Rfam assigns this 157-nucleotide RNA from Erwinia sp. 198 to the family "Glm Y RNA activator of glmS mRNA". Taxonomically the source falls in Erwinia (Bacteria, Pseudomonadati, Gammaproteobacteria, Erwiniaceae). About the family: This family consists of a number of bacterial RNA genes of around 167 bases in length. The tke1 RNA gene is present in Escherichia coli, Shigella flexneri, Yersinia pestis and Salmonella species where it is found between the yfhK and purL genes. The function of this RNA is unknown.
RNA sequence: AGCGGCUCAUUCACCUGGUUAUGACAGCCCUGCGCAAGCGGUCAAGCGCUUCAUAACGUUCCGAAUGAUGCACAAUACGGUGCCUGCCGUCCAGCGAGACCGAUACAGCUCCGGCUCUAUCACACUCAGGGCGCAACGUUGAGUUAGGCACCACCUA
Numbered sequence: 001a002g003c004g005g006c007u008c009a010u011u012c013a014c015c016u017g018g019u020u021a022u023g024a025c026a027g028c029c030c031u032g033c034g035c036a037a038g039c040g041g042u043c044a045a046g047c048g049c050u051u052c053a054u055a056a057c058g059u060u061c062c063g064a065a066u067g068a069u070g071c072a073c074a075a076u077a078c079g080g081u082g083c084c085u086g087c088c089g090u091c092c093a094g095c096g097a098g099a100c101c102g103a104u105a106c107a108g109c110u111c112c113g114g115c116u117c118u119a120u121c122a123c124a125c126u127c128a129g130g131g132c133g134c135a136a137c138g139u140u141g142a143g144u145u146a147g148g149c150a151c152c153a154c155c156u157a
Base pairs, nucleotide, nucleotide: 005071006070007068008067009066010065011064012063019056020055021054022053023052024051026050027049028048079152080151081150082149083148084147085146088133089132090131091130092129102121103120104119105118135145136144137143
Dot-bracket structure: ....((((((((......((((((.(((...................)))))))))......)))))).)).......(((((((..(((((.........((((............)))).......))))).(((.....)))))))))).....
For this family Rfam cites "Two seemingly homologous noncoding RNAs act hierarchically to activate glmS mRNA translation" (Urban and Vogel, PLoS Biol, 2008). The base pairs follow the family's consensus structure, which is taken from published work.